[Rfam]
RNA sequence: GCUCGGUUGAGUUUGGCUGGUGCCGGGGCUAGGCUUCAAACCUAGGGACGCUUCGCGGCGUAGCAGUUCGAUUCUGCCUACCGAGC
Number, nucleotide and partner (000 for none) at each position: 001g086002c085003u084004c083005g082006g081007u080008u000009g078010a000011g000012u027013u026014u025015g024016g023017c022018u000019g000020g000021u000022g017023c016024c015025g014026g013027g012028g000029c045030u044031a043032g042033g041034c000035u000036u000037c000038a000039a000040a000041c033042c032043u031044a030045g029046g000047g000048a061049c060050g059051c058052u057053u000054c000055g000056c000057g052058g051059c050060g049061u048062a000063g077064c076065a075066g074067u000068u000069c000070g000071a000072u000073u000074c066075u065076g064077c063078c009079u000080a007081c006082c005083g004084a003085g002086c001
The family of this 86-nucleotide RNA sequence from Adineta steineri is "Selenocysteine transfer RNA". A search with the family's covariance model found it, with a score of 69 bits. The source organism's lineage runs through Eukaryota, Eumetazoa, Gnathifera, Adinetida and Adineta.